[Rfam]
RNA sequence: AUGACAAUCGCGGGAGAGACUAAACUAUUUGUUUAGCACCGAAGGAGCAAGUCCCAAAAAAACCAUGGGAUCCAAUCUCUCAGGUAAAUGCACCGCGUUUGGACG
Numbered sequence: 001a002u003g004a005c006a007a008u009c010g011c012g013g014g015a016g017a018g019a020c021u022a023a024a025c026u027a028u029u030u031g032u033u034u035a036g037c038a039c040c041g042a043a044g045g046a047g048c049a050a051g052u053c054c055c056a057a058a059a060a061a062a063c064c065a066u067g068g069g070a071u072c073c074a075a076u077c078u079c080u081c082a083g084g085u086a087a088a089u090g091c092a093c094c095g096c097g098u099u100u101g102g103a104c105g
Base pairs, nucleotide, nucleotide: 006100007099009097010096011095012094013093020036021035022034023033038085039084040083041081042080045079046078047077051072
RNA: Glycine riboswitch aptamer